[Rfam]
RNA sequence: AAAGUAUCAUAUGCUACUGCGAUGGACUGGUUCAUAGCAGUCUGCUUUGCCUUU
Numbered sequence: 001a002a003a004g005u006a007u008c009a010u011a012u013g014c015u016a017c018u019g020c021g022a023u024g025g026a027c028u029g030g031u032u033c034a035u036a037g038c039a040g041u042c043u044g045c046u047u048u049g050c051c052u053u054u
Base pairs, nucleotide, nucleotide: 001054002053003052008049011046013045014044016041017040018039019038020037022035023034024033025032026031
RNA: Editing element of GABA-3 exon 9
Organism: Bambusicola thoracicus